RNA sequence: AUUCAGGUUGAUUCUGCCUGACGUGGAUGCUAGUCUCAUAGGUUAAGCCAUGCAUGUGCAAGCGAAGCCGGUGGUGGAGCGGCGCAAGGCUCAGUAACGGGCGACUGAUUUGAUCUCCCGGUGUGGACAACCUCUGUAACCGGAGGCCAAAACACAGGAGGCGCGUGACACGGGCACGGGCGUGCAACCGGCAGGUGCGGGAGAGUAAGGAGCCAUCCCAUCAGUUAGUAAGUAGGGUAAGGGCCUACUUAGACGAAGACGGGUACGGGGAAUUAGAGUUCGAUUCCGGAGAGGGAGCCUGAGAGACGGCUACCAGGUCCAAGGACAGCAGCAGGCGCGGAAAUUACCGAAGCCCGCGUUCGGGGCGGUAGUAAGGAGACGUGAAUACGAUGUGCAGGUAAAAUAUGCACUGGUAACAGGAGGUCAAGACUGGUGCCAGCAUCCGCGGUAAUACCAGCUCCUGGAGUGUCUAUGAUGAUUGUUG
Numbered sequence: 001a002u003u004c005a006g007g008u009u010g011a012u013u014c015u016g017c018c019u020g021a022c023g024u025g026g027a028u029g030c031u032a033g034u035c036u037c038a039u040a041g042g043u044u045a046a047g048c049c050a051u052g053c054a055u056g057u058g059c060a061a062g063c064g065a066a067g068c069c070g071g072u073g074g075u076g077g078a079g080c081g082g083c084g085c086a087a088g089g090c091u092c093a094g095u096a097a098c099g100g101g102c103g104a105c106u107g108a109u110u111u112g113a114u115c116u117c118c119c120g121g122u123g124u125g126g127a128c129a130a131c132c133u134c135u136g137u138a139a140c141c142g143g144a145g146g147c148c149a150a151a152a153c154a155c156a157g158g159a160g161g162c163g164c165g166u167g168a169c170a171c172g173g174g175c176a177c178g179g180g181c182g183u184g185c186a187a188c189c190g191g192c193a194g195g196u197g198c199g200g201g202a203g204a205g206u207a208a209g210g211a212g213c214c215a216u217c218c219c220a221u222c223a224g225u226u227a228g229u230a231a232g233u234a235g236g237g238u239a240a241g242g243g244c245c246u247a248c249u250u251a252g253a254c255g256a257a258g259a260c261g262g263g264u265a266c267g268g269g270g271a272a273u274u275a276g277a278g279u280u281c282g283a284u285u286c287c288g289g290a291g292a293g294g295g296a297g298c299c300u301g302a303g304a305g306a307c308g309g310c311u312a313c314c315a316g317g318u319c320c321a322a323g324g325a326c327a328g329c330a331g332c333a334g335g336c337g338c339g340g341a342a343a344u345u346a347c348c349g350a351a352g353c354c355c356g357c358g359u360u361c362g363g364g365g366c367g368g369u370a371g372u373a374a375g376g377a378g379a380c381g382u383g384a385a386u387a388c389g390a391u392g393u394g395c396a397g398g399u400a401a402a403a404u405a406u407g408c409a410c411u412g413g414u415a416a417c418a419g420g421a422g423g424u425c426a427a428g429a430c431u432g433g434u435g436c437c438a439g440c441a442u443c444c445g446c447g448g449u450a451a452u453a454c455c456a457g458c459u460c461c462u463g464g465a466g467u468g469u470c471u472a473u474g475a476u477g478a479u480u481g482u483u484g
Base pairs, nucleotide, nucleotide: 004020005019006018007017008016022474023473024472025471026470027469028468029467030466031465033380034379035378036377037376039373040372041338047336048335049334051333052332053331056083057082062080063079067075068074090291091290092289099216101214105210106209109208110207114204115203116202117201118200119199120198123155124154125153131146132145133144134143135142136141217263218262219261224254225253226252229251230250231249232248233247234246235245236244266288267287268286269285270281271280272279273278293314294313296311297310298309317326318325319324344370346369347368348367353364354363355362356361392410393409394408395407396406417463418462419461420460421459422458430457431456432455433454439446440445

Notes
A member of the RNA family "Microsporidia small subunit ribosomal RNA" from Vavraia culicis, 484 nucleotides of a longer RNA. On this family, see Yusupov et al., Science 2001: "Crystal structure of the ribosome at 5.5 A resolution". Rfam's curators put it in the seed alignment.